The record is a 95-nucleotide RNA from Acetivibrio clariflavus, which matches "c-di-GMP-I riboswitch aptamer" in Rfam. Lineage of the source: Bacteria > Bacillati > Clostridia > Acetivibrionaceae > Acetivibrio clariflavus.
Nucleotides: 095
Stems, first nucleotide, its partner, number of pairs: 012037002017032006040089004045085003048080003055074008
Number, partner (000 for none) and nucleotide at each position: 001000u002000a003000u004000g005000a006000a007000a008000c009000a010000g011000g012037g013036c014000a015000a016000a017032a018031u019030c020029a021028u022027u023000g024000a025000a026000a027022g028021a029020u030019g031018a032017u033000g034000a035000c036013g037012c038000a039000a040089a041088g042087c043086u044000u045085u046084g047083g048080g049079u050078c051000u052000a053000a054000g055074u056073u057072a058071a059070g060069g061068a062067u063000g064000a065000a066000u067062a068061u069060c070059c071058u072057u073056a074055a075000u076000a077000u078050g079049a080048u081000c082000g083047c084046c085045a086043g087042g088041c089040u090000g091000c092000c093000a094000u095000a